Histone 3' UTR stem-loop: a 45-nucleotide RNA from Sinocyclocheilus anshuiensis. The family's consensus secondary structure is taken from published work. It scores 35 bits against the family's covariance model. Gene Ontology term of the family: mRNA 3'-end processing by stem-loop binding and cleavage. A reference for the family is Zhang et al. (2014), "Molecular mechanisms for the regulation of histone mRNA stem-loop-binding protein by phosphorylation", Proc Natl Acad Sci U S A. From the family's description: The mRNAs of metazoan histone genes lack a poly-A tail. 3' end processing occurs at a site between a highly conserved stem-loop (modelled by this family) and a purine rich region around 20 nts downstream (the histone downstream element, or HDE).
RNA sequence: CCAAAGGCUCUUUUCAGAGCCACCCACUUUCUCGUGAGAGGGCGA
Numbered sequence: 001c002c003a004a005a006g007g008c009u010c011u012u013u014u015c016a017g018a019g020c021c022a023c024c025c026a027c028u029u030u031c032u033c034g035u036g037a038g039a040g041g042g043c044g045a
Stems, first nucleotide, its partner, number of pairs: 006021006